[Rfam]
RNA sequence: AUGAACAGAACAAACAAAGAUCUGUGUCUAGCGAUCCUGAUCGUGGGCAACUGCGUUUCGGUUGAUUGCUGGACAGUUCGACGACCCAAGGAGGCACCCAUUUUCUCGUUUGGUGUCCAUGUUUUCCGGUCGACAGAUCUCAGAUUAAAUGUUGACAUCGGGUGGUUCACUUCGGUCUUGAGCUCCCUCUGGUGAGCUCGGCUGGAGUUCCUGGUGUCGACGGCGUCAUAUUCCUGUUCCCUUUACCGAUCUGGCCGUCGGCCGAUGAGGUUAGGGAUAAACCAUGGCUAGCCAACAUUA
Numbered sequence: 001a002u003g004a005a006c007a008g009a010a011c012a013a014a015c016a017a018a019g020a021u022c023u024g025u026g027u028c029u030a031g032c033g034a035u036c037c038u039g040a041u042c043g044u045g046g047g048c049a050a051c052u053g054c055g056u057u058u059c060g061g062u063u064g065a066u067u068g069c070u071g072g073a074c075a076g077u078u079c080g081a082c083g084a085c086c087c088a089a090g091g092a093g094g095c096a097c098c099c100a101u102u103u104u105c106u107c108g109u110u111u112g113g114u115g116u117c118c119a120u121g122u123u124u125u126c127c128g129g130u131c132g133a134c135a136g137a138u139c140u141c142a143g144a145u146u147a148a149a150u151g152u153u154g155a156c157a158u159c160g161g162g163u164g165g166u167u168c169a170c171u172u173c174g175g176u177c178u179u180g181a182g183c184u185c186c187c188u189c190u191g192g193u194g195a196g197c198u199c200g201g202c203u204g205g206a207g208u209u210c211c212u213g214g215u216g217u218c219g220a221c222g223g224c225g226u227c228a229u230a231u232u233c234c235u236g237u238u239c240c241c242u243u244u245a246c247c248g249a250u251c252u253g254g255c256c257g258u259c260g261g262c263c264g265a266u267g268a269g270g271u272u273a274g275g276g277a278u279a280a281a282c283c284a285u286g287g288c289u290a291g292c293c294a295a296c297a298u299u300a
Stems, first nucleotide, its partner, number of pairs: 018140008026074006033067004037061004042055002045051001082132005090117002093114001095112001151218001153216001157215006174203004180199006186192002222293003225288005238277005245271003253263004

A. fumigatus sRNA Afu_309: a 300-nucleotide RNA from Aspergillus mulundensis. On this family, see Jochl et al., Nucleic Acids Res 2008: "Small ncRNA transcriptome analysis from Aspergillus fumigatus suggests a novel mechanism for regulation of protein synthesis". Rfam classes the family as a small RNA. The base pairs follow the family's consensus structure, which was predicted with WAR.